[Rfam]
Rfam assigns this 47-nucleotide RNA sequence from Eudromia elegans to the family "Guanidine-II riboswitch aptamer (mini-ykkC)".
On this family, see Weinberg et al., Nucleic Acids Res 2007: "Identification of 22 candidate structured RNAs in bacteria using the CMfinder comparative genomics pipeline".
About the family: Simpler in structure and has fewer highly conserved nucleotide positions than the ykkC-yxkD leader.
NCBI's taxonomy places the organism under Eukaryota, Opisthokonta, Euteleostomi, Sarcopterygii, Eudromia.
RNA sequence: CCCCAGGGACGGCCCUGAGACCGCGCGGGGGCACGGGGACGGCCCCA
Dot-bracket structure: .(.(((((....))))).)...............((((....)))).